[Rfam]
RNA sequence: CCAAGACCAAGCUUGGGAGUGGUCAUCCAAGGUAAGAGGUGCCAAAGGCACCCGCCACUCCCGCUUCCAAAAGGGCUUGGUCUUGAGCG
Numbered sequence: 001c002c003a004a005g006a007c008c009a010a011g012c013u014u015g016g017g018a019g020u021g022g023u024c025a026u027c028c029a030a031g032g033u034a035a036g037a038g039g040u041g042c043c044a045a046a047g048g049c050a051c052c053c054g055c056c057a058c059u060c061c062c063g064c065u066u067c068c069a070a071a072a073g074g075g076c077u078u079g080g081u082c083u084u085g086a087g088c089g
Stems, first nucleotide, its partner, number of pairs: 005082009015062009036053001038052005064073003

DUF1874 RNA: an 89-nucleotide sequence.
It is annotated as a cis-regulatory element.